[Rfam]
RNA sequence: GGAAGCGUGUGCUAGUGAUUGCACAACUGAACAUCGAUCGCUAACGUAUAGCAUUAUGGCAGAUCUGCUCAGUGGGUGUUAUCACGUUGUCGUAAGCUUCAAGUAGCUUCUGUAUCAGAGACUCCCGAUUGCGCAUGCAUCUUCGUGGCUCGUUUACGACCUCGGAUUUGCACGCCUGCACGGUCGAGUCUUCACGUCGCUCCUCGAAGUACCGCGAUUUCCAAAUUGGGGGGCAAUCGAAUAGGUCAGACGAGGUAAUUUGUCGCUUCCAUAUACAGGCACCGCAGAUCGCGGUACGCCAUUUUUUGUA
Numbered sequence: 001g002g003a004a005g006c007g008u009g010u011g012c013u014a015g016u017g018a019u020u021g022c023a024c025a026a027c028u029g030a031a032c033a034u035c036g037a038u039c040g041c042u043a044a045c046g047u048a049u050a051g052c053a054u055u056a057u058g059g060c061a062g063a064u065c066u067g068c069u070c071a072g073u074g075g076g077u078g079u080u081a082u083c084a085c086g087u088u089g090u091c092g093u094a095a096g097c098u099u100c101a102a103g104u105a106g107c108u109u110c111u112g113u114a115u116c117a118g119a120g121a122c123u124c125c126c127g128a129u130u131g132c133g134c135a136u137g138c139a140u141c142u143u144c145g146u147g148g149c150u151c152g153u154u155u156a157c158g159a160c161c162u163c164g165g166a167u168u169u170g171c172a173c174g175c176c177u178g179c180a181c182g183g184u185c186g187a188g189u190c191u192u193c194a195c196g197u198c199g200c201u202c203c204u205c206g207a208a209g210u211a212c213c214g215c216g217a218u219u220u221c222c223a224a225a226u227u228g229g230g231g232g233g234c235a236a237u238c239g240a241a242u243a244g245g246u247c248a249g250a251c252g253a254g255g256u257a258a259u260u261u262g263u264c265g266c267u268u269c270c271a272u273a274u275a276c277a278g279g280c281a282c283c284g285c286a287g288a289u290c291g292c293g294g295u296a297c298g299c300c301a302u303u304u305u306u307u308g309u310a
Stems, first nucleotide, its partner, number of pairs: 001270007015085005027072003032067002036065004040060004046054001278300003281295005
The record is a 310-nucleotide RNA sequence from Lasius niger, which matches "Arthropod 7SK RNA" in Rfam. NCBI's taxonomy places the organism under Eukaryota, Panarthropoda, Aculeata, Lasiini, Lasius. Its Rfam clan is "7SK clan". It is annotated as a non-coding RNA gene. The base pairs follow the family's consensus structure, which is taken from published work.